[Rfam]
RNA sequence: UCCUCGCCCAAAGAAUCGCAAUCGAAGCUUACACACAGAGGGCUUCAGGCCUCUCAUUGUACACAACGCUUCGGGAGAAAGUCCCCGGACAGCCUACAACACCUGUAGGAACUGCGGAAACGCGCCGCCAUAGAAGCAUGCGGCCUACCUAGUCCUCUCCUCCUCCUCUAUCCUCGCCCUCUACCCUUUCGCACUCUCCUUUGGCCUCCACCAAGUGGGACGGACGAGCUUGGAAGACGACAUGGACGAUGAUAUGAGUCCGCGCCUCUUUGCUUCGCCCGUCCUUAACGUGGUCUUGUGUCGGUGGUGAGGAGGAUAUUGGGACUUUUGACGGCAAGAGUUUGGGUCAAGGAGUCGGCAAGGACAUUUUCGUCGAAUUCGAUAGUUAUGCGAUUGCCCACUUUCUCUGCACCUUCUACCUCCACGUCAAGGUCACUCGAGAUUGCGAGAUGAAGAUGCGAGUUGGGUAACUCGAUGGGGCUUAUUCUUGGUGCGAGG
Numbered sequence: 001u002c003c004u005c006g007c008c009c010a011a012a013g014a015a016u017c018g019c020a021a022u023c024g025a026a027g028c029u030u031a032c033a034c035a036c037a038g039a040g041g042g043c044u045u046c047a048g049g050c051c052u053c054u055c056a057u058u059g060u061a062c063a064c065a066a067c068g069c070u071u072c073g074g075g076a077g078a079a080a081g082u083c084c085c086c087g088g089a090c091a092g093c094c095u096a097c098a099a100c101a102c103c104u105g106u107a108g109g110a111a112c113u114g115c116g117g118a119a120a121c122g123c124g125c126c127g128c129c130a131u132a133g134a135a136g137c138a139u140g141c142g143g144c145c146u147a148c149c150u151a152g153u154c155c156u157c158u159c160c161u162c163c164u165c166c167u168c169u170a171u172c173c174u175c176g177c178c179c180u181c182u183a184c185c186c187u188u189u190c191g192c193a194c195u196c197u198c199c200u201u202u203g204g205c206c207u208c209c210a211c212c213a214a215g216u217g218g219g220a221c222g223g224a225c226g227a228g229c230u231u232g233g234a235a236g237a238c239g240a241c242a243u244g245g246a247c248g249a250u251g252a253u254a255u256g257a258g259u260c261c262g263c264g265c266c267u268c269u270u271u272g273c274u275u276c277g278c279c280c281g282u283c284c285u286u287a288a289c290g291u292g293g294u295c296u297u298g299u300g301u302c303g304g305u306g307g308u309g310a311g312g313a314g315g316a317u318a319u320u321g322g323g324a325c326u327u328u329u330g331a332c333g334g335c336a337a338g339a340g341u342u343u344g345g346g347u348c349a350a351g352g353a354g355u356c357g358g359c360a361a362g363g364a365c366a367u368u369u370u371c372g373u374c375g376a377a378u379u380c381g382a383u384a385g386u387u388a389u390g391c392g393a394u395u396g397c398c399c400a401c402u403u404u405c406u407c408u409g410c411a412c413c414u415u416c417u418a419c420c421u422c423c424a425c426g427u428c429a430a431g432g433u434c435a436c437u438c439g440a441g442a443u444u445g446c447g448a449g450a451u452g453a454a455g456a457u458g459c460g461a462g463u464u465g466g467g468u469a470a471c472u473c474g475a476u477g478g479g480g481c482u483u484a485u486u487c488u489u490g491g492u493g494c495g496a497g498g
Stems, first nucleotide, its partner, number of pairs: 002498006008491004014395006022075001023073006038053004043048001079483003083480004113124004320366002326363005332357004341345001397467004402462003
Dot-bracket structure: .((((((((((..((((((..(((((((.........((((.(....).))))..............)))))).)...[[[.[[[[..........................((((....))))...................................................................................................................................................................................................((....(((((.((((.....(...)........)))).))))).)).......................)))))).((((.(((.......................................................))).)))).........]]]]]]]....)))).))))))